Shown here is an 87-nucleotide sequence from Erwinia pyrifoliae, a member of the family "Hfq-regulated sRNA 12". The organism belongs to Erwinia, within Bacteria. The literature on the family includes a 2014 paper in BMC Genomics by Zeng and Sundin, "Genome-wide identification of Hfq-regulated small RNAs in the fire blight pathogen Erwinia amylovora discovered small RNAs with virulence regulatory function". Rfam classes the family as a small RNA. Rfam's curators put it in the seed alignment.

[Rfam]
Nucleotides: 087
Stems, first nucleotide, its partner, number of pairs: 005039008042055004059079008
Number, partner (000 for none) and nucleotide at each position: 001000a002000u003000u004000u005039u006038u007037u008036a009035u010034u011033u012032c013000a014000u015000a016000a017000u018000u019000a020000c021000c022000u023000u024000c025000a026000c027000u028000u029000g030000c031000c032012g033011a034010a035009a036008u037007g038006a039005a040000c041000u042055g043054u044053a045052u046000g047000a048000c049000u050000u051000c052045a053044u054043a055042u056000u057000c058000c059079c060078g061077c062076c063075a064074g065073g066072c067000u068000u069000a070000a071000u072066g073065c074064c075063u076062g077061g078060c079059g080000u081000u082000u083000u084000u085000u086000u087000a

The base pairs follow the family's consensus structure, which was predicted with RNAfold. Gene Ontology term of the family: protein binding.